[Rfam]
RNA sequence: ACAAGGCAAGAUGUUGGCAUAGCUGAACGUGAUGAUGAUUGGCUUGUAAUUCAGAGCCUAAUCAAUUUGUAGAGGUUUCAGCCGUGCCACAUUAGGCCAUUUC
Numbered sequence: 001a002c003a004a005g006g007c008a009a010g011a012u013g014u015u016g017g018c019a020u021a022g023c024u025g026a027a028c029g030u031g032a033u034g035a036u037g038a039u040u041g042g043c044u045u046g047u048a049a050u051u052c053a054g055a056g057c058c059u060a061a062u063c064a065a066u067u068u069g070u071a072g073a074g075g076u077u078u079c080a081g082c083c084g085u086g087c088c089a090c091a092u093u094a095g096g097c098c099a100u101u102u103c
Stems, first nucleotide, its partner, number of pairs: 005098003011092004016088003022082005
Dot-bracket structure: ....(((...((((.(((...(((((...................................................)))))...)))))))...))).....
RNA: mir-72 microRNA precursor family